[Rfam]
Nucleotides: 106
Base pairs, nucleotide, nucleotide: 001061002060003059009054010053011052012051013050014049019041020040021039022038025035068106069105070104071103072102073101074100076098077097078096079095080094081093082092083091
Number, partner (000 for none) and nucleotide at each position: 001061c002060c003059g004000g005000g006000a007000c008000u009054c010053c011052c012051g013050c014049u015000c016000c017000u018000c019041g020040u021039g022038a023000u024000c025035g026000u027000c028000u029000u030000c031000u032000c033000a034000c035025c036000u037000a038022u039021c040020a041019c042000c043000g044000g045000g046000c047000a048000c049014g050013g051012c052011g053010g054009g055000a056000g057000a058000a059003c060002g061001g062000a063000a064000a065000a066000g067000g068106g069105g070104g071103c072102g073101g074100c075000c076098c077097c078096g079095g080094u081093g082092u083091g084000g085000a086000u087000g088000u089000g090000a091083c092082a093081c094080a095079c096078c097077g098076g099000a100074g101073c102072c103071g104070c105069c106068c
The record is a 106-nucleotide sequence from Streptomyces sp. RKND-216, which matches "sodF sRNA" in Rfam.
The base pairs follow the family's consensus structure.
NCBI's taxonomy places the organism under Bacteria, Bacillati, Actinomycetes, Kitasatosporales, Streptomyces.